[Rfam]
RNA sequence: UCCCUGGUCCGGGCCCCUCUGGCCGGCAUGCCCCGCCUUGGCAUUCCGGCGAUGUCGGACUUCCCCU
Numbered sequence: 001u002c003c004c005u006g007g008u009c010c011g012g013g014c015c016c017c018u019c020u021g022g023c024c025g026g027c028a029u030g031c032c033c034c035g036c037c038u039u040g041g042c043a044u045u046c047c048g049g050c051g052a053u054g055u056c057g058g059a060c061u062u063c064c065c066c067u
Stems, first nucleotide, its partner, number of pairs: 006061007022050005028044005
terC RNA: a 67-nucleotide RNA from Rubellimicrobium roseum.
By type it is a cis-regulatory element.
The family has 129 seed sequences and 1,112 matches in Rfam 15.1.